Shown here is a 394-nucleotide sequence from Tumebacillus flagellatus, a member of the family "Bacterial RNase P class B". Clan: RNaseP clan. It is annotated as a ribozyme. Taxonomically the source falls in Tumebacillus (Bacteria, Bacillota, Bacilli, Alicyclobacillaceae).
RNA sequence: ACAUGUGCGGCGAUCGCGCGUCCGCUUGACGGACGUGAGGAAAGUCCACGCUCGCCUGAGCUGAGAUGCUCAGAGUUCGGAUGCCUGGCCAAUCAAUAAGCCAGGGCACCCCGCGAGGGGUGACGGCGGGGAACGCAUGCUACGUCCUUCGGGAUAUGCUGCUACUACCCUGAAAGUGCCACAGUGACGAAUCUCCUUGGAAACGAGGAGGGUGGAACGAGGUAAACCCCAUCUGCGAGAAACCCAAAUUAUGGUCGGGGAACUGCUCCUAGGGAAUGUAGUACUGGAACCGAAGAGUGGAUCGACACAUGUCGAUAGAUAGAUGGUUGCCACCCGUAGUGCGAGGUCUAAUCAGCCGCCUGAAGCACAGGGGAACAAAACGUGGCUUACAACA
Numbered sequence: 001a002c003a004u005g006u007g008c009g010g011c012g013a014u015c016g017c018g019c020g021u022c023c024g025c026u027u028g029a030c031g032g033a034c035g036u037g038a039g040g041a042a043a044g045u046c047c048a049c050g051c052u053c054g055c056c057u058g059a060g061c062u063g064a065g066a067u068g069c070u071c072a073g074a075g076u077u078c079g080g081a082u083g084c085c086u087g088g089c090c091a092a093u094c095a096a097u098a099a100g101c102c103a104g105g106g107c108a109c110c111c112c113g114c115g116a117g118g119g120g121u122g123a124c125g126g127c128g129g130g131g132a133a134c135g136c137a138u139g140c141u142a143c144g145u146c147c148u149u150c151g152g153g154a155u156a157u158g159c160u161g162c163u164a165c166u167a168c169c170c171u172g173a174a175a176g177u178g179c180c181a182c183a184g185u186g187a188c189g190a191a192u193c194u195c196c197u198u199g200g201a202a203a204c205g206a207g208g209a210g211g212g213u214g215g216a217a218c219g220a221g222g223u224a225a226a227c228c229c230c231a232u233c234u235g236c237g238a239g240a241a242a243c244c245c246a247a248a249u250u251a252u253g254g255u256c257g258g259g260g261a262a263c264u265g266c267u268c269c270u271a272g273g274g275a276a277u278g279u280a281g282u283a284c285u286g287g288a289a290c291c292g293a294a295g296a297g298u299g300g301a302u303c304g305a306c307a308c309a310u311g312u313c314g315a316u317a318g319a320u321a322g323a324u325g326g327u328u329g330c331c332a333c334c335c336g337u338a339g340u341g342c343g344a345g346g347u348c349u350a351a352u353c354a355g356c357c358g359c360c361u362g363a364a365g366c367a368c369a370g371g372g373g374a375a376c377a378a379a380a381c382g383u384g385g386c387u388u389a390c391a392a393c394a
Stems, first nucleotide, its partner, number of pairs: 004394003007390001009331007017037006042388003046385005051239005056073006079234005084105006106124001107122006125229002128170003136161002139159002144155003176227002178223003192211008243259003263300006301316006334373002337370001339368004
From the family's description: Ribonuclease P (RNase P) is a ubiquitous endoribonuclease, found in archaea, bacteria and eukarya as well as chloroplasts and mitochondria.